[Rfam]
RNA sequence: GGAUGCAUUACAGGGUAUUUACUCCUUUGGCAGUUAUUUAGUCAUAUGCUAUAACUAACUGCCAAGGGAGAUUUGCCCUGCAAUUCAUCA
Numbered sequence: 001g002g003a004u005g006c007a008u009u010a011c012a013g014g015g016u017a018u019u020u021a022c023u024c025c026u027u028u029g030g031c032a033g034u035u036a037u038u039u040a041g042u043c044a045u046a047u048g049c050u051a052u053a054a055c056u057a058a059c060u061g062c063c064a065a066g067g068g069a070g071a072u073u074u075g076c077c078c079u080g081c082a083a084u085u086c087a088u089c090a
Stems, first nucleotide, its partner, number of pairs: 005086001007084003011080007022070004028064009